[Rfam]
Nucleotides: 591
Base pairs, nucleotide, nucleotide: 001591002590003589004588009584010583014539021062022061023060024059025058035050036049037048039046040045073575074574075573076572077571087192088191089190090189098112099111100110101109102108113127114126115125117124118123129188130187131186132185133184146175147174148173541563542562543561544560545559546558547557548556549555
Number, partner (000 for none) and nucleotide at each position: 001591g002590c003589a004588g005000a006000c007000u008000c009584a010583a011000a012000g013000c014539c015000g016000c017000g018000a019000u020000u021062g022061c023060u024059c025058g026000u027000u028000c029000c030000g031000c032000a033000c034000a035050g036049g037048a038000c039046c040045c041000a042000u043000a044000u045040g046039g047000a048037u049036c050035c051000a052000c053000a054000c055000c056000c057000a058025c059024g060023a061022g062021c063000g064000g065000g066000c067000c068000a069000a070000g071000g072000u073575c074574u075573g076572a077571g078000u079000a080000u081000c082000c083000c084000a085000g086000u087192u088191g089190c090189c091000c092000u093000c094000g095000c096000u097000c098112g099111a100110u101109u102108c103000u104000a105000g106000c107000g108102g109101g110100a111099u112098c113127g114126c115125u116000c117124c118123g119000u120000a121000a122000u123118c124117g125115a126114g127113c128000a129188a130187c131186g132185a133184g134000c135000a136000c137000a138000a139000g140000a141000a142000a143000u144000u145000c146175g147174c148173c149000a150000u151000u152000c153000g154000c155000a156000c157000u158000c159000c160000c161000u162000g163000c164000a165000g166000g167000g168000a169000u170000g171000c172000u173148g174147g175146c176000a177000u178000g179000g180000a181000a182000u183000u184133c185132u186131c187130g188129u189090g190089g191088c192087g193000a194000c195000a196000g197000c198000a199000u200000a201000c202000u203000a204000u205000c206000c207000u208000c209000c210000c211000c212000c213000u214000c215000c216000a217000g218000c219000g220000c221000a222000g223000u224000c225000u226000u227000u228000u229000g230000c231000a232000a233000g234000a235000g236000a237000u238000g239000a240000a241000c242000u243000a244000g245000c246000a247000u248000c249000c250000u251000g252000c253000a254000a255000c256000c257000u258000g259000u260000c261000g262000a263000a264000c265000a266000g267000g268000a269000c270000g271000c272000g273000g274000g275000a276000u277000c278000u279000g280000u281000g282000g283000c284000c285000g286000c287000c288000g289000c290000c291000a292000c293000g294000a295000c296000g297000c298000u299000u300000a301000c302000g303000c304000c305000g306000g307000u308000g309000g310000a311000c312000g313000c314000u315000u316000u317000g318000c319000g320000u321000c322000u323000u324000c325000u326000g327000g328000u329000g330000a331000u332000u333000g334000u335000c336000a337000c338000c339000g340000c341000a342000u343000u344000c345000g346000a347000c348000g349000a350000u351000g352000g353000g354000g355000g356000g357000a358000c359000u360000u361000c362000g363000g364000u365000c366000u367000u368000u369000g370000c371000g372000a373000c374000g375000c376000a377000g378000g379000g380000a381000g382000u383000a384000u385000u386000u387000c388000g389000g390000c391000g392000a393000c394000u395000c396000g397000c398000u399000a400000a401000a402000u403000c404000u405000c406000c407000u408000c409000c410000a411000c412000g413000u414000g415000c416000g417000u418000g419000g420000c421000u422000g423000c424000g425000u426000c427000u428000g429000c430000g431000c432000g433000a434000g435000c436000c437000c438000g439000u440000c441000g442000c443000a444000u445000g446000c447000c448000g449000g450000u451000g452000g453000c454000c455000u456000g457000g458000a459000g460000c461000u462000u463000u464000g465000c466000u467000c468000c469000g470000g471000a472000a473000g474000u475000g476000u477000u478000g479000u480000g481000g482000g483000c484000g485000g486000a487000c488000g489000c490000g491000u492000u493000u494000g495000u496000c497000g498000a499000u500000g501000g502000g503000a504000c505000c506000a507000c508000g509000g510000a511000g512000g513000a514000c515000g516000g517000g518000c519000g520000u521000g522000c523000u524000u525000g526000a527000g528000u529000g530000c531000a532000c533000u534000u535000c536000g537000c538000g539014g540000c541563u542562c543561g544560c545559g546558u547557c548556u549555c550000u551000u552000c553000g554000a555549g556548a557547g558546a559545c560544g561543c562542g563541a564000a565000a566000c567000u568000c569000g570000a571077u572076u573075c574074a575073g576000a577000c578000u579000a580000c581000u582000c583010u584009u585000u586000g587000u588004c589003u590002g591001c